RNA sequence: AUGGACCCGAGGAUACUGUCCCCAAAUUAUCGACUAUGACUAUACAAUGCGCAAAUGUAAUCCCAUCAGGAUUCCAAGCCAGAAAUCUGAUCCAU
Numbered sequence: 001a002u003g004g005a006c007c008c009g010a011g012g013a014u015a016c017u018g019u020c021c022c023c024a025a026a027u028u029a030u031c032g033a034c035u036a037u038g039a040c041u042a043u044a045c046a047a048u049g050c051g052c053a054a055a056u057g058u059a060a061u062c063c064c065a066u067c068a069g070g071a072u073u074c075c076a077a078g079c080c081a082g083a084a085a086u087c088u089g090a091u092c093c094a095u
Base pairs, nucleotide, nucleotide: 001095002094003093004092005091

This 95-nucleotide RNA from Hordeum vulgare belongs to the Rfam family "Small nucleolar RNA Z103". The base pairs follow the family's consensus structure, which was predicted with PFOLD. Its family is annotated with RNA processing and nucleolus in the Gene Ontology. The literature on the family includes a 2003 paper in Nucleic Acids Res by Chen et al., "The high diversity of snoRNAs in plants: identification and comparative study of 120 snoRNA genes from Oryza sativa". A search with the family's covariance model found it, with a score of 75 bits.